The record is a 346-nucleotide part of an RNA from Jaapia argillacea, which matches "Eukaryotic large subunit ribosomal RNA" in Rfam. The base pairs follow the family's consensus structure, which is taken from published work. The family is grouped with related families in Rfam's "LSU clan".

[Rfam]
RNA sequence: GACUCUAGUUUGACAUUGUGAAAAGACAUAGAGGGUGUAGCAUAAGUGGGAGCUUCGGCGCCGUUGAAAUACCACUACCUUUAUCGUCUUUUUACUUAUUCAAUGAAGCGGAGCUGAGGUUAAUAGCCUCACGUUUUUGCUCUAAGGUCCUUCGCGGGCCGAUCCGGGUUGAAGACAUUGUCAGGUGGGGAGUUUGGCUGGGGCGGCACAUCUGUUAAAAGAUAACGCAGGUGUCCUAAGGGGGACUCAUCGAGAACAGAAAUCUCGAGUAGAACAAAAGGGUAAAAGUCCCCUUGAUUUUGAUUUUCAGUGUGAAUACAAACCAUGAAAGUGUGGCCUAUCGAUC
Numbered sequence: 001g002a003c004u005c006u007a008g009u010u011u012g013a014c015a016u017u018g019u020g021a022a023a024a025g026a027c028a029u030a031g032a033g034g035g036u037g038u039a040g041c042a043u044a045a046g047u048g049g050g051a052g053c054u055u056c057g058g059c060g061c062c063g064u065u066g067a068a069a070u071a072c073c074a075c076u077a078c079c080u081u082u083a084u085c086g087u088c089u090u091u092u093u094a095c096u097u098a099u100u101c102a103a104u105g106a107a108g109c110g111g112a113g114c115u116g117a118g119g120u121u122a123a124u125a126g127c128c129u130c131a132c133g134u135u136u137u138u139g140c141u142c143u144a145a146g147g148u149c150c151u152u153c154g155c156g157g158g159c160c161g162a163u164c165c166g167g168g169u170u171g172a173a174g175a176c177a178u179u180g181u182c183a184g185g186u187g188g189g190g191a192g193u194u195u196g197g198c199u200g201g202g203g204c205g206g207c208a209c210a211u212c213u214g215u216u217a218a219a220a221g222a223u224a225a226c227g228c229a230g231g232u233g234u235c236c237u238a239a240g241g242g243g244g245a246c247u248c249a250u251c252g253a254g255a256a257c258a259g260a261a262a263u264c265u266c267g268a269g270u271a272g273a274a275c276a277a278a279a280g281g282g283u284a285a286a287a288g289u290c291c292c293c294u295u296g297a298u299u300u301u302g303a304u305u306u307u308c309a310g311u312g313u314g315a316a317u318a319c320a321a322a323c324c325a326u327g328a329a330a331g332u333g334u335g336g337c338c339u340a341u342c343g344a345u346c
Stems, first nucleotide, its partner, number of pairs: 002193004009185007018095010028084007045076005052059002099173005109166004117129005146160005196209001197207003210232006235336002241293006247273002250268006274283002298322003303317004324333003